Rfam assigns this 225-nucleotide sequence from Gluconacetobacter johannae to the family "permuted transfer-messenger RNA".
Its family is annotated with RNA catabolic process in the Gene Ontology.
The organism belongs to Gluconacetobacter, within Bacteria.
The literature on the family includes a 1996 paper in RNA by Williams and Bartel, "Phylogenetic analysis of tmRNA secondary structure".
The base pairs follow the family's consensus structure, which is taken from published work.
The match comes from Rfam's covariance-model search (141 bits).
Rfam's curators write: Bacterial tmRNA, also known as 10Sa RNA or SsrA, is named for its dual tRNA and mRNA-like properties. Its role is to liberate the mRNA from a stalled ribosome. To accomplish this part of the tmRNA is used as a reading frame that ends in a translation stop signal.
It is annotated as a non-coding RNA gene.
RNA sequence: GGCGAUAAACGGCACGUGGAAUAAAUGUUGUGGACCCGGGGGCGGUACCCGGCGUCUCCACCAGAACGCUCUCCGCUACGACCCUUCGGGGCAGGGAGCCAUGGGGACGAAACAGGCUCGACACGCAUGGUAAAGACCUGCCUUUUGCCCGGUAUUGUACCACCGUCAUCGGGCUAAAUCACAAGUGCCAACGAUAACUCUGAGGUGCUCGCUGUCGCUGCAUAA
Numbered sequence: 001g002g003c004g005a006u007a008a009a010c011g012g013c014a015c016g017u018g019g020a021a022u023a024a025a026u027g028u029u030g031u032g033g034a035c036c037c038g039g040g041g042g043c044g045g046u047a048c049c050c051g052g053c054g055u056c057u058c059c060a061c062c063a064g065a066a067c068g069c070u071c072u073c074c075g076c077u078a079c080g081a082c083c084c085u086u087c088g089g090g091g092c093a094g095g096g097a098g099c100c101a102u103g104g105g106g107a108c109g110a111a112a113c114a115g116g117c118u119c120g121a122c123a124c125g126c127a128u129g130g131u132a133a134a135g136a137c138c139u140g141c142c143u144u145u146u147g148c149c150c151g152g153u154a155u156u157g158u159a160c161c162a163c164c165g166u167c168a169u170c171g172g173g174c175u176a177a178a179u180c181a182c183a184a185g186u187g188c189c190a191a192c193g194a195u196a197a198c199u200c201u202g203a204g205g206u207g208c209u210c211g212c213u214g215u216c217g218c219u220g221c222a223u224a225a
Base pairs, nucleotide, nucleotide: 001149002148003147004146005145014139016137017136026127027126028125030124031123032122036052037051038050039049040048053109054108055107056106057105058104059103150165151164152163153162